RNA sequence: CGGACCUAAGGUAGCAUCGCUACCGAAAUCGCCUGUAAUCCGGACAGUACCACGCAUGUGGUAUGGCGAUAUUUCAAACAGCUGCUACGGCAGCACUUCA
Numbered sequence: 001c002g003g004a005c006c007u008a009a010g011g012u013a014g015c016a017u018c019g020c021u022a023c024c025g026a027a028a029u030c031g032c033c034u035g036u037a038a039u040c041c042g043g044a045c046a047g048u049a050c051c052a053c054g055c056a057u058g059u060g061g062u063a064u065g066g067c068g069a070u071a072u073u074u075c076a077a078a079c080a081g082c083u084g085c086u087a088c089g090g091c092a093g094c095a096c097u098u099c100a
Stems, first nucleotide, its partner, number of pairs: 010024005029069005048063006081094005
RNA: DUF3577 RNA